[Rfam]
RNA sequence: UGAUAACGCUAGGGGAGUCAUUGUUACUGAGAGUUCCGGACAAACGGAACGACCCUUGGAACCUGAUCCGGCUGAUACCGGCGUAGGGAAGCGGCGUAAAAACGAA
Numbered sequence: 001u002g003a004u005a006a007c008g009c010u011a012g013g014g015g016a017g018u019c020a021u022u023g024u025u026a027c028u029g030a031g032a033g034u035u036c037c038g039g040a041c042a043a044a045c046g047g048a049a050c051g052a053c054c055c056u057u058g059g060a061a062c063c064u065g066a067u068c069c070g071g072c073u074g075a076u077a078c079c080g081g082c083g084u085a086g087g088g089a090a091g092c093g094g095c096g097u098a099a100a101a102a103c104g105a106a
Base pairs, nucleotide, nucleotide: 007093008092009091010090011056012055013054014053017027018026020024034049035048036047037046038045062087063086064085065084068081069080070079071078
RNA: TPP riboswitch aptamer (THI element)